[Rfam]
RNA: Small nucleolar RNA SNORA73 family
RNA sequence: CCAACGUGAAUAUCCUGAGGGUCACUCCUCAGGCACUGUUCAGGUGGCGUAAGGGAGCAUAGGGCUUUGCCCUGUGAUGUACAGUCCCAUUCCACAACGUUGGAGAUCAAGCCGGGCCUUGUGUCUGCACCUGCAUAUUCCUAAACCUUCUCAGAGUCUUUGGACUAUGACUGAGGAGACAAACCAUGCAGGAAACAGUU
Number, nucleotide and partner (000 for none) at each position: 001c103002c102003a101004a100005c099006g098007u097008g041009a040010a039011u038012a037013u000014c033015c032016u031017g000018a000019g027020g026021g000022u000023c000024a000025c000026u020027c019028c000029u000030c000031a016032g015033g014034c000035a000036c000037u012038g011039u010040u009041c008042a000043g000044g095045u094046g093047g092048c000049g000050u000051a000052a000053g088054g087055g086056a085057g082058c000059a080060u079061a078062g075063g000064g000065c000066u000067u000068u000069g000070c000071c000072c000073u000074g000075u062076g000077a000078u061079g060080u059081a000082c057083a000084g000085u056086c055087c054088c053089a000090u000091u000092c047093c046094a045095c044096a000097a007098c006099g005100u004101u003102g002103g001104a000105g000106a000107u000108c000109a000110a000111g000112c000113c000114g000115g000116g000117c000118c000119u000120u000121g000122u000123g000124u000125c000126u000127g000128c000129a000130c192131c191132u190133g189134c188135a187136u186137a000138u000139u000140c000141c000142u000143a000144a000145a000146c000147c178148u177149u176150c175151u174152c173153a000154g000155a000156g165157u164158c163159u000160u000161u000162g000163g158164a157165c156166u000167a000168u000169g000170a000171c000172u000173g152174a151175g150176g149177a148178g147179a000180c000181a000182a000183a000184c000185c000186a136187u135188g134189c133190a132191g131192g130193a000194a000195a000196c000197a000198g000199u000200u000